[Rfam]
RNA sequence: UAGCAUAUAUGACAAAGAUAGAGAGCACGCUUGUAGACAGUCAUGUCCCUUGCAUGAAUGUUAACAAGCGUGCUCUCUCUCCUUGUCAUGCAACA
Numbered sequence: 001u002a003g004c005a006u007a008u009a010u011g012a013c014a015a016a017g018a019u020a021g022a023g024a025g026c027a028c029g030c031u032u033g034u035a036g037a038c039a040g041u042c043a044u045g046u047c048c049c050u051u052g053c054a055u056g057a058a059u060g061u062u063a064a065c066a067a068g069c070g071u072g073c074u075c076u077c078u079c080u081c082c083u084u085g086u087c088a089u090g091c092a093a094c095a
Stems, first nucleotide, its partner, number of pairs: 010088005017081001020078002023075001025073010

MIR535 microRNA precursor family: a 95-nucleotide RNA sequence from Cephalotus follicularis. Lineage of the source: Eukaryota > Magnoliopsida > Mesangiospermae > eudicotyledons > Cephalotus. The base pairs follow the family's consensus structure, which was predicted with RNAalifold. A reference for the family is Zeng et al. (2010), "Conservation and divergence of microRNAs and their functions in Euphorbiaceous plants", Nucleic Acids Res. Its family is annotated with RISC complex and miRNA-mediated post-transcriptional gene silencing in the Gene Ontology.